[Rfam]
RNA sequence: CUUUGACUAGUGUCAAAGUCUUAUGCAGUAUUAACCCACUGCGUACCGGCUAGAACCCGGAUUGGACUUCUAAAAAAGGAGAAAACAAAUG
Numbered sequence: 001c002u003u004u005g006a007c008u009a010g011u012g013u014c015a016a017a018g019u020c021u022u023a024u025g026c027a028g029u030a031u032u033a034a035c036c037c038a039c040u041g042c043g044u045a046c047c048g049g050c051u052a053g054a055a056c057c058c059g060g061a062u063u064g065g066a067c068u069u070c071u072a073a074a075a076a077a078g079g080a081g082a083a084a085a086c087a088a089a090u091g
Stems, first nucleotide, its partner, number of pairs: 001018005022045007046060004
This 91-nucleotide RNA belongs to the Rfam family "freshwater-2 RNA". It is one of the family's seed sequences.